Notes: This 63-nucleotide sequence from Molossus molossus belongs to the Rfam family "U7 small nuclear RNA". A search with the family's covariance model found it, with a score of 56 bits. Taxonomically the source falls in Molossus (Eukaryota, Dipnotetrapodomorpha, Mammalia, Chiroptera).
[Rfam]
RNA sequence: AAGUGCUUACAGCUUUUUUUGAAUUUGUCUAGUAGGUCUUCCCAUCUUUACCAGAAGGCCCCA
Numbered sequence: 001a002a003g004u005g006c007u008u009a010c011a012g013c014u015u016u017u018u019u020u021g022a023a024u025u026u027g028u029c030u031a032g033u034a035g036g037u038c039u040u041c042c043c044a045u046c047u048u049u050a051c052c053a054g055a056a057g058g059c060c061c062c063a
Stems, first nucleotide, its partner, number of pairs: 035060007045050001